[Rfam]
RNA sequence: GGCUGUGAUGAGUUGGAAUACGCUGACCUGGUAUUGGCAAACAUUUGCUUGUCUCUGACCAGGGUAUGAAUGUUUAAUCUUCUCUCUGAGCCA
Numbered sequence: 001g002g003c004u005g006u007g008a009u010g011a012g013u014u015g016g017a018a019u020a021c022g023c024u025g026a027c028c029u030g031g032u033a034u035u036g037g038c039a040a041a042c043a044u045u046u047g048c049u050u051g052u053c054u055c056u057g058a059c060c061a062g063g064g065u066a067u068g069a070a071u072g073u074u075u076a077a078u079c080u081u082c083u084c085u086c087u088g089a090g091c092c093a
Base pairs, nucleotide, nucleotide: 002091003090036053037052038051039050
Z30 small nucleolar RNA: a 93-nucleotide RNA sequence from Chiloscyllium punctatum. It scores 71 bits against the family's covariance model.